Source information:
The record is a 237-nucleotide RNA sequence from Bacillus thuringiensis, which matches "T-box leader" in Rfam. Lineage of the source: Bacteria > Bacilli > Caryophanales > Bacillus thuringiensis > [Bacillus thuringiensis] serovar konkukian. The base pairs follow the family's consensus structure, which is taken from published work. About the family: Uncharged tRNA acts as the effector for transcription antitermination of genes in the T-box leader family. T-boxes are found upstream of many aminoacyl-tRNA synthetase genes and some amino acid biosynthetic genes usually in Gram-positive bacteria. The anticodon of a specific tRNA base pairs to a specifier sequence within the T-box motif, and the NCCA acceptor tail of the tRNA base pairs to a conserved bulge in the T-box antiterminator hairpin.
Nucleotides: 237
Base pairs, nucleotide, nucleotide: 007106008105015101016100017099018098028088029087030086032084033083041077042076043075052074053073054072055071056070057069109151110150111149112148113147114146115145153166154165155164183201184200185199186198187197188196206234207233208232209231217230218229219228220227221226
Number, partner (000 for none) and nucleotide at each position: 001000a002000u003000g004000c005000a006000u007106g008105c009000g010000u011000u012000g013000a014000a015101a016100g017099g018098a019000a020000a021000a022000g023000c024000a025000g026000u027000a028088g029087u030086u031000g032084u033083u034000g035000u036000u037000u038000c039000c040000c041077u042076g043075u044000a045000a046000c047000a048000g049000a050000g051000a052074g053073c054072u055071g056070g057069u058000g059000g060000u061000c062000g063000g064000u065000g066000u067000g068000a069057a070056c071055c072054a073053g074052u075043a076042c077041a078000a079000a080000a081000a082000c083033a084032a085000g086030a087029g088028c089000g090000a091000a092000u093000u094000a095000c096000a097000g098018u099017c100016c101015u102000a103000g104000a105008g106007c107000a108000u109151c110150u111149u112148u113147u114146u115145c116000g117000u118000a119000g120000u121000a122000a123000a124000g125000a126000u127000a128000g129000u130000a131000u132000u133000u134000a135000u136000c137000u138000u139000u140000a141000u142000g143000a144000a145115g146114g147113g148112a149111a150110a151109g152000a153166c154165g155164g156000u157000c158000a159000g160000a161000u162000g163000a164155u165154c166153g167000u168000u169000a170000a171000c172000a173000a174000u175000g176000a177000a178000g179000a180000g181000a182000g183201g184200u185199a186198g187197a188196c189000g190000a191000a192000a193000g194000a195000a196188g197187u198186c199185u200184a201183c202000a203000a204000c205000u206234a207233g208232g209231g210000u211000g212000g213000u214000a215000c216000c217230g218229c219228g220227a221226u222000a223000a224000a225000u226221a227220u228219c229218g230217u231209c232208c233207c234206u235000a236000c237000u

It is one of the family's seed sequences. By type it is a cis-regulatory leader. The family has 48 seed sequences and 19,395 matches in Rfam 15.1.